[Rfam]
This 298-nucleotide RNA sequence from Strongylocentrotus purpuratus belongs to the Rfam family "Metazoan signal recognition particle RNA". Rfam 15.1 lists 383,523 matches to the family in 1,221 species. Its Rfam clan is "SRP clan". About the family: The signal recognition particle (SRP) is a universally conserved ribonucleoprotein. It is involved in the co-translational targeting of proteins to membranes. The eukaryotic SRP consists of a 300-nucleotide 7S RNA and six proteins: SRPs 72, 68, 54, 19, 14, and 9. By type it is a non-coding RNA gene. Lineage of the source: Eukaryota > Echinodermata > Euechinoidea > Echinacea > Strongylocentrotus. The sequence is in the family's curated seed alignment.
RNA sequence: ACUGGGCGUUGUGGCGUGCGCCUGUAAUCCAGUUACUUGGAAGUCGGGGUUGGUGGAUCGUUUGAGAGCGGGAGUCCUGUAUGUCGUCGCUCUAUGGCGAUCGGGCGUCCAUGCUAAGCUCGGCAUCGAUAUGGUUGAUUGGUCGGAGGACUGGCCAACCAGGUCGUCUAAGGAGGGACGUACUGGCCCAGGGCGGAAACGCAGCAGGCAAAAGUCCCCGUGUGGAGCAGUAGUGGGAUAGCGCCUGUGAAUAGGCGGCGGCUUGCAGCCCGUUCAACAUAGUGAGACCCAAUCCUUU
Numbered sequence: 001a002c003u004g005g006g007c008g009u010u011g012u013g014g015c016g017u018g019c020g021c022c023u024g025u026a027a028u029c030c031a032g033u034u035a036c037u038u039g040g041a042a043g044u045c046g047g048g049g050u051u052g053g054u055g056g057a058u059c060g061u062u063u064g065a066g067a068g069c070g071g072g073a074g075u076c077c078u079g080u081a082u083g084u085c086g087u088c089g090c091u092c093u094a095u096g097g098c099g100a101u102c103g104g105g106c107g108u109c110c111a112u113g114c115u116a117a118g119c120u121c122g123g124c125a126u127c128g129a130u131a132u133g134g135u136u137g138a139u140u141g142g143u144c145g146g147a148g149g150a151c152u153g154g155c156c157a158a159c160c161a162g163g164u165c166g167u168c169u170a171a172g173g174a175g176g177g178a179c180g181u182a183c184u185g186g187c188c189c190a191g192g193g194c195g196g197a198a199a200c201g202c203a204g205c206a207g208g209c210a211a212a213a214g215u216c217c218c219c220g221u222g223u224g225g226a227g228c229a230g231u232a233g234u235g236g237g238a239u240a241g242c243g244c245c246u247g248u249g250a251a252u253a254g255g256c257g258g259c260g261g262c263u264u265g266c267a268g269c270c271c272g273u274u275c276a277a278c279a280u281a282g283u284g285a286g287a288c289c290c291a292a293u294c295c296u297u298u
Stems, first nucleotide, its partner, number of pairs: 001044003004023006028041003046296008058285005066275007077268005083262007091255005102247007109237002112235005118228004123223004127166004132161006139154006167173002175218005184211001186209003193202003